[Rfam]
RNA sequence: UACUUAUCAAGAGUGGUGGAGGGACAGGCCCGUCGAAACCACAGCAACCGCCCUUUGAGGAAAGGUGCUAAUUCCUGCCCUGCGUGCCGUGAAGACAGGGGAGAUAAGAA
Numbered sequence: 001u002a003c004u005u006a007u008c009a010a011g012a013g014u015g016g017u018g019g020a021g022g023g024a025c026a027g028g029c030c031c032g033u034c035g036a037a038a039c040c041a042c043a044g045c046a047a048c049c050g051c052c053c054u055u056u057g058a059g060g061a062a063a064g065g066u067g068c069u070a071a072u073u074c075c076u077g078c079c080c081u082g083c084g085u086g087c088c089g090u091g092a093a094g095a096c097a098g099g100g101g102a103g104a105u106a107a108g109a110a
Stems, first nucleotide, its partner, number of pairs: 001110001003108006013042005021031003025077004043069004048065002051060002073102001078099002081097002
Description:
Rfam assigns this 110-nucleotide RNA from Geovibrio thiophilus to the family "SAM riboswitch aptamer (S box leader)". About the family: The SAM riboswitch is found upstream of a number of genes which code for proteins involved in methionine or cysteine biosynthesis in Gram-positive bacteria. Lineage of the source: Bacteria > Deferribacterota > Deferribacteres > Deferribacterales > Geovibrio. Rfam links the family to the GO term regulation of gene expression.